This 128-nucleotide RNA from Prolemur simus belongs to the Rfam family "Small nucleolar RNA SNORA25".
The match comes from Rfam's covariance-model search (108 bits).
Rfam classes the family as an H/ACA-box small nucleolar RNA.
The source organism's lineage runs through Eukaryota, Chordata, Craniata, Strepsirrhini and Prolemur.
RNA sequence: AGGCCAUUUCAAAGAGAUCGUGUGGGACUGUGAAACCAAGAGCUCUUAACGCUAUGACCAAAGACUGGAGUUCUCUAUAGGAUGCCAUAGCACUCAAUAGUGUUGUUUUUUUGUGAAGAUAUAAAUUU
Numbered sequence: 001a002g003g004c005c006a007u008u009u010c011a012a013a014g015a016g017a018u019c020g021u022g023u024g025g026g027a028c029u030g031u032g033a034a035a036c037c038a039a040g041a042g043c044u045c046u047u048a049a050c051g052c053u054a055u056g057a058c059c060a061a062a063g064a065c066u067g068g069a070g071u072u073c074u075c076u077a078u079a080g081g082a083u084g085c086c087a088u089a090g091c092a093c094u095c096a097a098u099a100g101u102g103u104u105g106u107u108u109u110u111u112u113g114u115g116a117a118g119a120u121a122u123a124a125a126u127u128u
Base pairs, nucleotide, nucleotide: 002059003058005056006055007054014047015046016045017044019042021040023039026037072121074119075118076117079114081112082111087106088105089104090103091102092101093100094099
Gene Ontology terms of the family: nucleolus and RNA processing. From the family's description: ACA25 is a member of the H/ACA class of snoRNA that guide the sites of modification of uridines to pseudouridines.